[Rfam]
Nucleotides: 085
Base pairs, nucleotide, nucleotide: 001085002084003083004082
Number, partner (000 for none) and nucleotide at each position: 001085g002084g003083c004082c005000u006000g007000u008000g009000a010000u011000g012000u013000a014000a015000g016000g017000a018000u019000a020000a021000u022000a023000u024000u025000u026000g027000c028000u029000a030000c031000u032000c033000u034000u035000g036000a037000u038000g039000a040000g041000a042000u043000u044000u045000u046000c047000u048000c049000a050000u051000u052000u053000g054000a055000u056000u057000a058000u059000u060000c061000u062000u063000u064000a065000u066000c067000c068000a069000c070000c071000a072000a073000g074000a075000u076000c077000u078000c079000u080000g081000a082004g083003g084002c085001c

Description
The family of this 85-nucleotide RNA from Artemisia annua is "Small nucleolar RNA SNORD24". Taxonomically the source falls in Artemisia (Eukaryota, Viridiplantae, Euphyllophyta, campanulids). On this family, see Kiss-Laszlo et al., Cell 1996: "Site-specific ribose methylation of preribosomal RNA: a novel function for small nucleolar RNAs". The match comes from Rfam's covariance-model search (63 bits).